Rfam assigns this 36-nucleotide RNA sequence to the family "DUF805b RNA".
Pairs were carried over by alignment from the consensus structure, which is taken from published work.
[Rfam]
RNA sequence: ACGGCGUCCUCCGAAAAGCCGAAGACAGAGUAGGAA
Numbered sequence: 001a002c003g004g005c006g007u008c009c010u011c012c013g014a015a016a017a018g019c020c021g022a023a024g025a026c027a028g029a030g031u032a033g034g035a036a
Stems, first nucleotide, its partner, number of pairs: 002021004010035003